The family of this 117-nucleotide sequence from Budvicia aquatica is "Group II catalytic intron D1-D4-2".
The source organism's lineage runs through Bacteria, Pseudomonadota, Enterobacterales, Budviciaceae and Budvicia.

[Rfam]
RNA sequence: GGAGGUGGGCCCUCCGGUCAGGGUUUGCAGGAACACUGACCAAACGACCCGGUGCUGCUUCAUUCUAAGGAAUGUGGUGGUGAGCGACUCGGGAAAAGGCAGAGAUCUACUGUCACG
Numbered sequence: 001g002g003a004g005g006u007g008g009g010c011c012c013u014c015c016g017g018u019c020a021g022g023g024u025u026u027g028c029a030g031g032a033a034c035a036c037u038g039a040c041c042a043a044a045c046g047a048c049c050c051g052g053u054g055c056u057g058c059u060u061c062a063u064u065c066u067a068a069g070g071a072a073u074g075u076g077g078u079g080g081u082g083a084g085c086g087a088c089u090c091g092g093g094a095a096a097a098g099g100c101a102g103a104g105a106u107c108u109a110c111u112g113u114c115a116c117g
Stems, first nucleotide, its partner, number of pairs: 001015005016041006023034004045117002048093005053087001054081002057078003061074004098114005
Rfam 15.1 lists 1,231 matches to the family in 625 species. Rfam describes the family as follows. Group II introns are found in rRNA, tRNA and mRNA of organelles in fungi, plants and protists, and also in mRNA in bacteria.